[Rfam]
RNA sequence: UGAUAUCAGGGUCAAAAGCUCCAAAAGCCGUUCGUGCUUGCACGAUUAGGUUUUUGAGCUUAGGACCCGCAAAAACAUGAAGAUACAGCGAUUUUCAAGGAAAAUCAGCGAAUCCGAAUGUUUUUAGAAUUGUGAAAGUUGCAUAGCAACGGAGCAAUUCGUGGAUAUCA
Numbered sequence: 001u002g003a004u005a006u007c008a009g010g011g012u013c014a015a016a017a018g019c020u021c022c023a024a025a026a027g028c029c030g031u032u033c034g035u036g037c038u039u040g041c042a043c044g045a046u047u048a049g050g051u052u053u054u055u056g057a058g059c060u061u062a063g064g065a066c067c068c069g070c071a072a073a074a075a076c077a078u079g080a081a082g083a084u085a086c087a088g089c090g091a092u093u094u095u096c097a098a099g100g101a102a103a104a105u106c107a108g109c110g111a112a113u114c115c116g117a118a119u120g121u122u123u124u125u126a127g128a129a130u131u132g133u134g135a136a137a138g139u140u141g142c143a144u145a146g147c148a149a150c151g152g153a154g155c156a157a158u159u160c161g162u163g164g165a166u167a168u169c170a
Stems, first nucleotide, its partner, number of pairs: 001170007010067004016061006023055007032045005071125008082114003088109002090106007127160007138150004

Clostridiales-1 RNA: a 170-nucleotide RNA from Clostridiales bacterium KLE1615. By type it is a small RNA.